[Rfam]
A member of the RNA family "Bacterial RNase P class B" from [Mycoplasma] phocae, 326 nucleotides long.
The family is grouped with related families in Rfam's "RNaseP clan".
NCBI's taxonomy places the organism under Bacteria, Bacillati, Mycoplasmatota, Mycoplasmoidales, Metamycoplasma.
The base pairs follow the family's consensus structure, which is taken from published work.
Rfam describes the family as follows. Ribonuclease P (RNase P) is a ubiquitous endoribonuclease, found in archaea, bacteria and eukarya as well as chloroplasts and mitochondria. Its best characterised activity is the generation of mature 5'-ends of tRNAs by cleaving the 5'-leader elements of precursor-tRNAs.
RNA sequence: GAGCACGGCUAACUGCUGUAUUAAUAUUAUAAUAUAGAGGAAAAUCCGCUCUAGCACUUGCUGAGAUGCAAGUAGUGAUCAUGCUAGACCUAAUAAGUCUAGGCAACUUUAAAAGUUGACAACUAGUGCAACAGAGACGAGCUUAUUAAGUUAAGAUGCAACGAUGUAAACUUCAUGAGUUAGAAACCCAAAUUUUGGUAGGGGAAUUAGACCAAUGAAAUUCAACAAAGGUCUGAAAGCUAUGAAAAUAGUUUAGAUAAAUAGUUAGCACUACAUUUCUAGAUGUUUAGGCAUUACGAAAGUAGUACAAAAAGCGGUUUAUAGUG
Number, nucleotide and partner (000 for none) at each position: 001g000002a000003g000004c326005a325006c324007g322008g269009c268010u267011a266012a265013c264014u263015g000016c037017u036018g035019u034020a033021u032022u000023a000024a000025u000026a000027u000028u000029a000030u000031a000032a021033u020034a019035u018036a017037g016038a000039g000040g000041a000042a320043a319044a318045u000046c317047c316048g315049c314050u313051c183052u182053a181054g180055c179056a073057c072058u071059u070060g069061c068062u000063g000064a000065g000066a000067u000068g061069c060070a059071a058072g057073u056074a000075g000076u000077g000078a000079u178080c177081a176082u175083g174084c102085u101086a100087g099088a098089c097090c000091u000092a000093a000094u000095a000096a000097g089098u088099c087100u086101a085102g084103g120104c118105a117106a116107c115108u114109u113110u000111a000112a000113a109114a108115g107116u106117u105118g104119a000120c103121a173122a172123c000124u000125a000126g171127u170128g167129c166130a165131a000132c000133a000134g000135a000136g000137a000138c000139g000140a000141g000142c155143u154144u153145a152146u000147u000148a000149a000150g000151u000152u145153a144154a143155g142156a000157u000158g000159c000160a000161a000162c000163g000164a000165u130166g129167u128168a000169a000170a127171c126172u122173u121174c083175a082176u081177g080178a079179g055180u054181u053182a052183g051184a000185a000186a000187c203188c202189c201190a000191a000192a000193u000194u000195u000196u000197g000198g000199u000200a000201g189202g188203g187204g000205a000206a000207u236208u235209a234210g233211a232212c231213c230214a000215a000216u000217g000218a000219a000220a000221u000222u000223c000224a000225a000226c000227a000228a000229a000230g213231g212232u211233c210234u209235g208236a207237a254238a253239g252240c251241u250242a249243u000244g000245a000246a000247a000248a000249u242250a241251g240252u239253u238254u237255a000256g000257a000258u000259a000260a000261a000262u000263a014264g013265u012266u011267a010268g009269c008270a000271c305272u304273a303274c302275a000276u300277u299278u298279c000280u000281a000282g000283a000284u000285g000286u000287u000288u000289a000290g000291g000292c000293a000294u000295u000296a000297c000298g278299a277300a276301a000302g274303u273304a272305g271306u000307a000308c000309a000310a000311a000312a000313a050314g049315c048316g047317g046318u044319u043320u042321a000322u007323a000324g006325u005326g004